About this RNA: A member of the RNA family "Glycine riboswitch aptamer" from Gordonia jinhuaensis, 119 nucleotides long. Lineage of the source: Bacteria > Actinomycetota > Mycobacteriales > Gordoniaceae > Gordonia.
[Rfam]
RNA sequence: CGCUGUCGCACGGGAGAGCGUCGAUGGUGGUGACCGGGAUGCCCGGGAGUCGCCGAUCGGCCGCCGAAGGAGCAAUACCUCCCCGUCAAACUCUCAGGCAAGCGGACCGUGUUGUGGCC
Numbered sequence: 001c002g003c004u005g006u007c008g009c010a011c012g013g014g015a016g017a018g019c020g021u022c023g024a025u026g027g028u029g030g031u032g033a034c035c036g037g038g039a040u041g042c043c044c045g046g047g048a049g050u051c052g053c054c055g056a057u058c059g060g061c062c063g064c065c066g067a068a069g070g071a072g073c074a075a076u077a078c079c080u081c082c083c084c085g086u087c088a089a090a091c092u093c094u095c096a097g098g099c100a101a102g103c104g105g106a107c108c109g110u111g112u113u114g115u116g117g118c119c
Stems, first nucleotide, its partner, number of pairs: 006114001008112006020061006063099003066095002070093003077086002